This 106-nucleotide RNA sequence from Methylotenera mobilis belongs to the Rfam family "Methylophilales-1 RNA". The family's consensus secondary structure is taken from published work. It is one of the family's seed sequences.

[Rfam]
RNA sequence: AGUUGGUGCAGUGAAUAAGGUAGUAAGCGUGAUGCCUUAGGGUGCAUGCCGAUGAGUCAUCAUUGACCUAGUGUGAUUCUACCGAUAUAGAUUAGGCGCACUAACC
Numbered sequence: 001a002g003u004u005g006g007u008g009c010a011g012u013g014a015a016u017a018a019g020g021u022a023g024u025a026a027g028c029g030u031g032a033u034g035c036c037u038u039a040g041g042g043u044g045c046a047u048g049c050c051g052a053u054g055a056g057u058c059a060u061c062a063u064u065g066a067c068c069u070a071g072u073g074u075g076a077u078u079c080u081a082c083c084g085a086u087a088u089a090g091a092u093u094a095g096g097c098g099c100a101c102u103a104a105c106c
Stems, first nucleotide, its partner, number of pairs: 002105008019083004027049005034043003054079006061073005